[Rfam]
RNA sequence: GCUGUUUUUGGGUGGAUGACUUCGCAAUUUUAAUACCAUUUUAAGAUCUGACCGAAAAUUGCACAGUAUCCAUCUGUAAUCCGCC
Number, nucleotide and partner (000 for none) at each position: 001g000002c000003u000004g000005u000006u000007u000008u000009u076010g075011g074012g073013u072014g071015g070016a069017u068018g000019a067020c066021u000022u000023c000024g062025c061026a060027a059028u058029u057030u056031u055032a000033a000034u000035a000036c000037c000038a000039u000040u000041u000042u000043a000044a000045g000046a000047u000048c000049u000050g000051a000052c000053c000054g000055a031056a030057a029058a028059u027060u026061g025062c024063a000064c000065a000066g020067u019068a017069u016070c015071c014072a013073u012074c011075u010076g009077u000078a000079a000080u000081c000082c000083g000084c000085c000
RNA: mir-363 microRNA precursor family
Organism: Muraenolepis orangiensis